[Rfam]
RNA: Plastid-atpF group II-D1 intron
RNA sequence: UGGAAUUUUUUCGAUAUAGAACACUCAUGUCGAGAAAAUGACUUUACGAUGAU
Numbered sequence: 001u002g003g004a005a006u007u008u009u010u011u012c013g014a015u016a017u018a019g020a021a022c023a024c025u026c027a028u029g030u031c032g033a034g035a036a037a038a039u040g041a042c043u044u045u046a047c048g049a050u051g052a053u
Stems, first nucleotide, its partner, number of pairs: 011033007